[Rfam]
RNA sequence: UGCAGAGUAGAUAACGAGGCGUUAAGUGCCUAGGUGAACGGGGAGUUGUCACCAGGACGAAGAGCGACGUCUUGCGGUUUCGUUAUCGCAUCCCGCUGCU
Numbered sequence: 001u002g003c004a005g006a007g008u009a010g011a012u013a014a015c016g017a018g019g020c021g022u023u024a025a026g027u028g029c030c031u032a033g034g035u036g037a038a039c040g041g042g043g044a045g046u047u048g049u050c051a052c053c054a055g056g057a058c059g060a061a062g063a064g065c066g067a068c069g070u071c072u073u074g075c076g077g078u079u080u081c082g083u084u085a086u087c088g089c090a091u092c093c094c095g096c097u098g099c100u
Base pairs, nucleotide, nucleotide: 002099003098004097005096010087011086012085013084014083015082016081017080018079019078020076021075022074026058027057029056030055031054033053034052035051036050037049041093042092043091045089062073063072064071
Shown here is a 100-nucleotide RNA sequence from Intestinibaculum porci, a member of the family "THF (Tetrahydrofolate) riboswitch aptamer".
About the family: Tetrahydrofolate (THF) riboswitch was first reported for Ames et al. as an RNA motif in 5' untranslated (5'-UTR)regions of folate transport and biosynthesis genes in Firmicutes genomes.
Lineage of the source: Bacteria > Bacillati > Erysipelotrichales > Erysipelotrichaceae > Intestinibaculum.
A search with the family's covariance model found it, with a score of 80 bits.